[Rfam]
mir-46/mir-47/mir-281 microRNA precursor family: an 82-nucleotide sequence from Lingula anatina. Lineage of the source: Eukaryota > Protostomia > Spiralia > Lophotrochozoa > Lingula. Rfam links the family to the GO terms miRNA-mediated post-transcriptional gene silencing and RISC complex. Rfam 15.1 lists 307 matches to the family in 262 species. A search with the family's covariance model found it, with a score of 55 bits. A reference for the family is Lai et al. (2003), "Computational identification of Drosophila microRNA genes", Genome Biol.

Nucleotides: 082
Stems, first nucleotide, its partner, number of pairs: 014070005020064003024058003030053003034049002
Number, partner (000 for none) and nucleotide at each position: 001000c002000a003000a004000g005000u006000c007000c008000g009000g010000c011000g012000a013000u014070g015069a016068a017067g018066a019000g020064a021063g022062c023000a024058u025057u026056c027000u028000u029000g030053g031052a032051c033000a034049g035048u036000g037000u038000a039000u040000a041000a042000u043000a044000g045000c046000c047000a048035a049034c050000u051032g052031u053030c054000a055000u056026g057025g058024a059000g060000u061000u062022g063021c064020u065000c066018u067017c068016u069015u070014u071000a072000c073000c074000g075000a076000c077000u078000g079000u080000g081000g082000c